[Rfam]
RNA: Small nucleolar RNA SNORA75
RNA sequence: CCCUUCUCAAUGAGCUCCUUCCUGCCAACAAAUCCGUGGCAGCCUACGGAUUCGCACGAGAAGGAGAUUAACUGUCCAGUCCUGGCACACUCACAAUGGGGCUCCGUCGAUUGUGAUUAGCCACUGCUGGUCUACAGGU
Numbered sequence: 001c002c003c004u005u006c007u008c009a010a011u012g013a014g015c016u017c018c019u020u021c022c023u024g025c026c027a028a029c030a031a032a033u034c035c036g037u038g039g040c041a042g043c044c045u046a047c048g049g050a051u052u053c054g055c056a057c058g059a060g061a062a063g064g065a066g067a068u069u070a071a072c073u074g075u076c077c078a079g080u081c082c083u084g085g086c087a088c089a090c091u092c093a094c095a096a097u098g099g100g101g102c103u104c105c106g107u108c109g110a111u112u113g114u115g116a117u118u119a120g121c122c123a124c125u126g127c128u129g130g131u132c133u134a135c136a137g138g139u
Base pairs, nucleotide, nucleotide: 003063004062005061006060007059008058014055015054016050017049018048022042023041024040025039026038074132076130077129078128079127094113095112096111097110099108